A member of the RNA family "HNH endonuclease-associated RNA and ORF (HEARO) RNA" from Thermogemmatispora tikiterensis, 249 nucleotides long. Rfam classes the family as a non-coding RNA gene.
RNA sequence: GUCAUAGACCCCACGGCUCAAGCCGGGGGCUUGCAGGGAAUCUUGCAAGCCCGACUAUGACCAGCCCAAGCGGUUGAGCCGAAGGACAAGGCGAGGACGCCGCUCCGUUGCUGGCAGGCCAACGACCCACUCCGGGAUGCUUCCCCAGUUCCGGACCCUGGAAGUCCCGGCUGCAGACAACCUUCGGGGUGUGGGCGAAACGGGCCGGGGCAGAUGGCCGGCCAGCAACAUGGGCGAGGGGAGCGGUCC
Numbered sequence: 001g002u003c004a005u006a007g008a009c010c011c012c013a014c015g016g017c018u019c020a021a022g023c024c025g026g027g028g029g030c031u032u033g034c035a036g037g038g039a040a041u042c043u044u045g046c047a048a049g050c051c052c053g054a055c056u057a058u059g060a061c062c063a064g065c066c067c068a069a070g071c072g073g074u075u076g077a078g079c080c081g082a083a084g085g086a087c088a089a090g091g092c093g094a095g096g097a098c099g100c101c102g103c104u105c106c107g108u109u110g111c112u113g114g115c116a117g118g119c120c121a122a123c124g125a126c127c128c129a130c131u132c133c134g135g136g137a138u139g140c141u142u143c144c145c146c147a148g149u150u151c152c153g154g155a156c157c158c159u160g161g162a163a164g165u166c167c168c169g170g171c172u173g174c175a176g177a178c179a180a181c182c183u184u185c186g187g188g189g190u191g192u193g194g195g196c197g198a199a200a201c202g203g204g205c206c207g208g209g210g211c212a213g214a215u216g217g218c219c220g221g222c223c224a225g226c227a228a229c230a231u232g233g234g235c236g237a238g239g240g241g242a243g244c245g246g247u248c249c
Stems, first nucleotide, its partner, number of pairs: 001061007010029002012026001016023002030049008064235005069104005107229009117219001127161002131155008141243006164211009181195003
Annotation: On this family, see Weinberg et al., Nature 2009: "Exceptional structured noncoding RNAs revealed by bacterial metagenome analysis". NCBI's taxonomy places the organism under Bacteria, Chloroflexota, Thermogemmatisporales, Thermogemmatisporaceae, Thermogemmatispora. It scores 100 bits against the family's covariance model.